This 110-nucleotide RNA from Protea cynaroides belongs to the Rfam family "MIR828 microRNA precursor family".
The family's consensus secondary structure was predicted with RNAalifold.
Rfam links the family to the GO terms miRNA-mediated post-transcriptional gene silencing and RISC complex.
On this family, see Rajagopalan et al., Genes Dev 2006: "A diverse and evolutionarily fluid set of microRNAs in Arabidopsis thaliana".
RNA sequence: AUAAUGUUUCUUGCUCAAAUGAGUAUUCCAAGGGCCGCAGCCAUUCACUAGCUAGUUAGCAUGUACCUACCUCCGGUUGCUGCGAUACUCAUCUGAGCAAGCAACGUUAA
Number, nucleotide and partner (000 for none) at each position: 001a000002u000003a000004a107005u106006g105007u104008u103009u000010c101011u100012u099013g098014c097015u096016c095017a094018a000019a092020u091021g090022a089023g088024u087025a086026u085027u084028c000029c082030a081031a000032g000033g000034g000035c000036c000037g000038c000039a000040g000041c000042c000043a000044u000045u000046c000047a000048c000049u000050a000051g000052c000053u000054a000055g000056u000057u000058a000059g000060c000061a000062u000063g000064u000065a000066c000067c000068u000069a000070c000071c000072u000073c000074c000075g000076g000077u000078u000079g000080c000081u030082g029083c000084g027085a026086u025087a024088c023089u022090c021091a020092u019093c000094u017095g016096a015097g014098c013099a012100a011101g010102c000103a008104a007105c006106g005107u004108u000109a000110a000
The family has 16 seed sequences and 204 matches in Rfam 15.1.